[Rfam]
RNA sequence: GUACCACUAGCAGGCUGGCGAAAAUGUUCCGGUUGAAUUGAAUGGCUGAUUUGUCACCGGCGCUUUUUCGACGAGCUUUCCGUGGUUU
Numbered sequence: 001g002u003a004c005c006a007c008u009a010g011c012a013g014g015c016u017g018g019c020g021a022a023a024a025u026g027u028u029c030c031g032g033u034u035g036a037a038u039u040g041a042a043u044g045g046c047u048g049a050u051u052u053g054u055c056a057c058c059g060g061c062g063c064u065u066u067u068u069c070g071a072c073g074a075g076c077u078u079u080c081c082g083u084g085g086u087u088u
Base pairs, nucleotide, nucleotide: 003086004085005084006083007082012078013077014076015075016074018072019070020069021068022067023066024065026063027062029060030059031058032057033056035055036054037052
mir-5316 microRNA precursor family: an 88-nucleotide RNA from Rhipicephalus microplus.
Rfam links the family to the GO terms RISC complex and miRNA-mediated post-transcriptional gene silencing.
NCBI's taxonomy places the organism under Eukaryota, Eumetazoa, Panarthropoda, Ixodidae, Boophilus.